The record is a 123-nucleotide sequence from Brachypodium distachyon, which matches "MIR9481 microRNA precursor family" in Rfam.
Rfam links the family to the GO terms RISC complex and miRNA-mediated post-transcriptional gene silencing.
RNA sequence: UGCAAAUUCGGAGGUCAGGGAUUCUACUGAUUUAACUAAAUUUCAUCCGGCAAAGUGAAAAACUUGUACGUCGGAUGUUUUUAGUGGGAAAUCAGUCGGAUUUCUCACCUUCGAAUCUGCAUC
Numbered sequence: 001u002g003c004a005a006a007u008u009c010g011g012a013g014g015u016c017a018g019g020g021a022u023u024c025u026a027c028u029g030a031u032u033u034a035a036c037u038a039a040a041u042u043u044c045a046u047c048c049g050g051c052a053a054a055g056u057g058a059a060a061a062a063c064u065u066g067u068a069c070g071u072c073g074g075a076u077g078u079u080u081u082u083a084g085u086g087g088g089a090a091a092u093c094a095g096u097c098g099g100a101u102u103u104c105u106c107a108c109c110u111u112c113g114a115a116u117c118u119g120c121a122u123c
Stems, first nucleotide, its partner, number of pairs: 001121004006116010017105008026096008035085006044077008